The family of this 108-nucleotide RNA from Rhododendron williamsianum is "Small nucleolar RNA snoR100".
Its family is annotated with nucleolus and RNA processing in the Gene Ontology.
A search with the family's covariance model found it, with a score of 78 bits.
It is annotated as an H/ACA-box small nucleolar RNA.
NCBI's taxonomy places the organism under Eukaryota, Embryophyta, Tracheophyta, Mesangiospermae, Rhododendron.

RNA sequence: CAAUGAAGGAAGCAUGAUAAUAUGCACAUAAAUUGAAUUGGAUCUCUAGACUUGCCCUCUUUGAUGCCAUUUGGCUUUGAUUUAGGGGCAUGGUUUCACAGUAAAACA
Numbered sequence: 001c002a003a004u005g006a007a008g009g010a011a012g013c014a015u016g017a018u019a020a021u022a023u024g025c026a027c028a029u030a031a032a033u034u035g036a037a038u039u040g041g042a043u044c045u046c047u048a049g050a051c052u053u054g055c056c057c058u059c060u061u062u063g064a065u066g067c068c069a070u071u072u073g074g075c076u077u078u079g080a081u082u083u084a085g086g087g088g089c090a091u092g093g094u095u096u097c098a099c100a101g102u103a104a105a106a107c108a
Stems, first nucleotide, its partner, number of pairs: 012025004040091001043088002050081001052079001054075003